Shown here is a 166-nucleotide RNA sequence from Diabrotica balteata, a member of the family "U1 spliceosomal RNA". The base pairs follow the family's consensus structure, which is taken from published work. The match comes from Rfam's covariance-model search (119 bits). NCBI's taxonomy places the organism under Eukaryota, Eumetazoa, Protostomia, Neuropteroidea, Diabrotica. The family's RNA type in Rfam is spliceosomal small nuclear RNA.
[Rfam]
RNA sequence: UUACUUACCUGGCGUAGGGGCUACCGUGAUCAAUAAGGCGGUUCCCCCAGGGUGAGGCCCUUCCAUUGCACUUCGGUUAGGCUGACCCCUGCGAUUAUCCCUAAUGCGGAUAACUCGGGCGCGUAAUUUUUGGUUACUUUUUUGGUUACUUUUUGGUUACAGCAUG
Numbered sequence: 001u002u003a004c005u006u007a008c009c010u011g012g013c014g015u016a017g018g019g020g021c022u023a024c025c026g027u028g029a030u031c032a033a034u035a036a037g038g039c040g041g042u043u044c045c046c047c048c049a050g051g052g053u054g055a056g057g058c059c060c061u062u063c064c065a066u067u068g069c070a071c072u073u074c075g076g077u078u079a080g081g082c083u084g085a086c087c088c089c090u091g092c093g094a095u096u097a098u099c100c101c102u103a104a105u106g107c108g109g110a111u112a113a114c115u116c117g118g119g120c121g122c123g124u125a126a127u128u129u130u131u132g133g134u135u136a137c138u139u140u141u142u143u144g145g146u147u148a149c150u151u152u153u154u155g156g157u158u159a160c161a162g163c164a165u166g
Stems, first nucleotide, its partner, number of pairs: 012122004017047004023042005049090004054086001056083003060080002063076002092117003095113003099109002139164001141162002145160001148157003